[Rfam]
RNA sequence: AAGAAACACAGUAACUGACGACAAAAGUGGAAAAAACCACAAGGGAGCUGUGUUUAUAUAUGUCGGGUCGUCUGGGCAGGGAUA
Numbered sequence: 001a002a003g004a005a006a007c008a009c010a011g012u013a014a015c016u017g018a019c020g021a022c023a024a025a026a027g028u029g030g031a032a033a034a035a036a037c038c039a040c041a042a043g044g045g046a047g048c049u050g051u052g053u054u055u056a057u058a059u060a061u062g063u064c065g066g067g068u069c070g071u072c073u074g075g076g077c078a079g080g081g082a083u084a
Stems, first nucleotide, its partner, number of pairs: 004055009015044002017072005027040004061078004
Dot-bracket structure: ...(((((((((..(([[[[[.....((((......))))..))..))))))))).....((((...]]]]]..))))......
RNA: ZMP/ZTP riboswitch aptamer (pfl RNA motif)
Organism: Alkalihalobacillus trypoxylicola